[Rfam]
RNA sequence: UUCUUAUCCAGAGUGGUUGAGGGAACGGCCCUAUGAAACCACAACAACCACCUUGAAAAGUGUGUACGGAUCAAGUGUUAAGUCUCAACACUUGACACUCACCACUUAACACUUUUUAGGGCAGGUGCUAAUUCCGUGCAGUGACCAGCAAUUGGCUGCAAAUGCAAGAUAAGAG
Numbered sequence: 001u002u003c004u005u006a007u008c009c010a011g012a013g014u015g016g017u018u019g020a021g022g023g024a025a026c027g028g029c030c031c032u033a034u035g036a037a038a039c040c041a042c043a044a045c046a047a048c049c050a051c052c053u054u055g056a057a058a059a060g061u062g063u064g065u066a067c068g069g070a071u072c073a074a075g076u077g078u079u080a081a082g083u084c085u086c087a088a089c090a091c092u093u094g095a096c097a098c099u100c101a102c103c104a105c106u107u108a109a110c111a112c113u114u115u116u117u118a119g120g121g122c123a124g125g126u127g128c129u130a131a132u133u134c135c136g137u138g139c140a141g142u143g144a145c146c147a148g149c150a151a152u153u154g155g156c157u158g159c160a161a162a163u164g165c166a167a168g169a170u171a172a173g174a175g
Base pairs, nucleotide, nucleotide: 001175002174003173004172005171006170007169008168013042014041015040016039017038021031022030023029026136027135028134043129045127046126048125049124051120052119053118133167

This 175-nucleotide RNA from a Chthonomonadaceae bacterium belongs to the Rfam family "SAM riboswitch aptamer (S box leader)". Rfam describes the family as follows. The SAM riboswitch is found upstream of a number of genes which code for proteins involved in methionine or cysteine biosynthesis in Gram-positive bacteria. Pairs were carried over by alignment from the consensus structure, which is taken from published work.